[Rfam]
RNA sequence: UCAGUUGGCCGGGCGGCCGCGCCGUAUCAAUGCCGAAAGGCGUGCGGUGAGGAAAGUCCGGGCUCCACAGAGAACGGUGCCGGAUAACGUCCGGCGAGGGUGACCUUAGGGAAAGUGCCACAGAAAGCAAACCGCCUUCAAAGAUGUUCGCAUCAGGAGGGUAAGGGUGAAAGGGUGCGGUAAGAGCGCACCGCAUGGCUGGUAACAGUCAUGGCAGGGUAAACCCCACCGGGAGCAAGACCGAAUAGGGAUGGCGUCAACUUCGGUUGCGCGGCUCUUCGCGAGUCAUCCGGGUAGGUUGCACGAGGCGUAUAGCAAUAUGCGUCCCAGAUGAAUGGUCGCCACGUGCUGAUUUCAGCGCCAUACAGAACCCGGCUUACAGGCCAACUGACACA
Numbered sequence: 001u002c003a004g005u006u007g008g009c010c011g012g013g014c015g016g017c018c019g020c021g022c023c024g025u026a027u028c029a030a031u032g033c034c035g036a037a038a039g040g041c042g043u044g045c046g047g048u049g050a051g052g053a054a055a056g057u058c059c060g061g062g063c064u065c066c067a068c069a070g071a072g073a074a075c076g077g078u079g080c081c082g083g084a085u086a087a088c089g090u091c092c093g094g095c096g097a098g099g100g101u102g103a104c105c106u107u108a109g110g111g112a113a114a115g116u117g118c119c120a121c122a123g124a125a126a127g128c129a130a131a132c133c134g135c136c137u138u139c140a141a142a143g144a145u146g147u148u149c150g151c152a153u154c155a156g157g158a159g160g161g162u163a164a165g166g167g168u169g170a171a172a173g174g175g176u177g178c179g180g181u182a183a184g185a186g187c188g189c190a191c192c193g194c195a196u197g198g199c200u201g202g203u204a205a206c207a208g209u210c211a212u213g214g215c216a217g218g219g220u221a222a223a224c225c226c227c228a229c230c231g232g233g234a235g236c237a238a239g240a241c242c243g244a245a246u247a248g249g250g251a252u253g254g255c256g257u258c259a260a261c262u263u264c265g266g267u268u269g270c271g272c273g274g275c276u277c278u279u280c281g282c283g284a285g286u287c288a289u290c291c292g293g294g295u296a297g298g299u300u301g302c303a304c305g306a307g308g309c310g311u312a313u314a315g316c317a318a319u320a321u322g323c324g325u326c327c328c329a330g331a332u333g334a335a336u337g338g339u340c341g342c343c344a345c346g347u348g349c350u351g352a353u354u355u356c357a358g359c360g361c362c363a364u365a366c367a368g369a370a371c372c373c374g375g376c377u378u379a380c381a382g383g384c385c386a387a388c389u390g391a392c393a394c395a
Stems, first nucleotide, its partner, number of pairs: 001391010011380001012343007020049008054378003058375005063235004070277003075231005080094005095109001096107004110226002115224002117220003132166002134162006174192006193215001194213008239300004249291006268283004307326008

The record is a 395-nucleotide RNA from Ahrensia marina, which matches "Bacterial RNase P class A" in Rfam. Pairs were carried over by alignment from the consensus structure, which is taken from published work. Taxonomically the source falls in Ahrensia (Bacteria, Pseudomonadati, Pseudomonadota, Hyphomicrobiales). Gene Ontology terms of the family: tRNA processing, ribonuclease P activity and dimeric ribonuclease P complex. The match comes from Rfam's covariance-model search (331 bits).